Glycine riboswitch aptamer: a 146-nucleotide RNA from Kineosphaera limosa. The source organism's lineage runs through Bacteria, Actinomycetes, Micrococcales, Kineosphaera and Kineosphaera limosa.
RNA sequence: UCACCUCGCGCGGGAGAGCCGUGCGUCGACGCGUUCCGAUCCCGCUGGCCGGUCACGGUCACCCGGGGUCGGUUGCGUGGUGACGUGCGGCGCCGAAGGAGCAAACCUCCCCGGAAACUCUCAGGCACCAGGACCGCGCGAGGCAG
Numbered sequence: 001u002c003a004c005c006u007c008g009c010g011c012g013g014g015a016g017a018g019c020c021g022u023g024c025g026u027c028g029a030c031g032c033g034u035u036c037c038g039a040u041c042c043c044g045c046u047g048g049c050c051g052g053u054c055a056c057g058g059u060c061a062c063c064c065g066g067g068g069u070c071g072g073u074u075g076c077g078u079g080g081u082g083a084c085g086u087g088c089g090g091c092g093c094c095g096a097a098g099g100a101g102c103a104a105a106c107c108u109c110c111c112c113g114g115a116a117a118c119u120c121u122c123a124g125g126c127a128c129c130a131g132g133a134c135c136g137c138g139c140g141a142g143g144c145a146g
Stems, first nucleotide, its partner, number of pairs: 006141008019090010092126003095122002099120003106113001